[Rfam]
RNA sequence: UACAUUUGCAACUUCAAUAGAAAAAAUCAUUGAUGUACAUAAAAAUCAAUUUAAAUAAUAUUGGCAUG
Numbered sequence: 001u002a003c004a005u006u007u008g009c010a011a012c013u014u015c016a017a018u019a020g021a022a023a024a025a026a027u028c029a030u031u032g033a034u035g036u037a038c039a040u041a042a043a044a045a046u047c048a049a050u051u052u053a054a055a056u057a058a059u060a061u062u063g064g065c066a067u068g
Base pairs, nucleotide, nucleotide: 014033015032016031017030018029
The family of this 68-nucleotide sequence is "S15-Flavobacteria ribosomal protein leader". Its Rfam clan is "Ribosomal Protein S15 Leader clan". The literature on the family includes a 2020 paper in BMC Microbiol by Eckert and Weinberg, "Discovery of 20 novel ribosomal leader candidates in bacteria and archaea".